Rfam assigns this 87-nucleotide RNA from Paramaledivibacter caminithermalis to the family "c-di-GMP-I-GGC riboswitch aptamer". The family's consensus secondary structure is taken from published work.
[Rfam]
RNA sequence: ACUGAUAAUGGCAAACCUGUCGAAAGGCAGGGACGCAAAGCUAUAGGGCCUUCUGUAAAAAUUAUAGAUGGCAGCCAGUUACCAAAG
Numbered sequence: 001a002c003u004g005a006u007a008a009u010g011g012c013a014a015a016c017c018u019g020u021c022g023a024a025a026g027g028c029a030g031g032g033a034c035g036c037a038a039a040g041c042u043a044u045a046g047g048g049c050c051u052u053c054u055g056u057a058a059a060a061a062u063u064a065u066a067g068a069u070g071g072c073a074g075c076c077a078g079u080u081a082c083c084a085a086a087g
Base pairs, nucleotide, nucleotide: 003084004083011036012035016031017030018029019028020027021026034074039080040079041078042077046076047075048072049071050070